[Rfam]
RNA sequence: ACGUCCUGCUCGUGAUCGUCUUCUCAACCUUCACUUGCAGGCGGUAGGACGAAGGGCUCCCACAAGCCGGAUGCUUGCGGGAGCCCUUC
Numbered sequence: 001a002c003g004u005c006c007u008g009c010u011c012g013u014g015a016u017c018g019u020c021u022u023c024u025c026a027a028c029c030u031u032c033a034c035u036u037g038c039a040g041g042c043g044g045u046a047g048g049a050c051g052a053a054g055g056g057c058u059c060c061c062a063c064a065a066g067c068c069g070g071a072u073g074c075u076u077g078c079g080g081g082a083g084c085c086c087u088u089c
Base pairs, nucleotide, nucleotide: 002043003042005041006040007039008038009037012034013033014032015031018028019027051089052088053087054086055085056084057083058082059081060080061079063077064076065075066074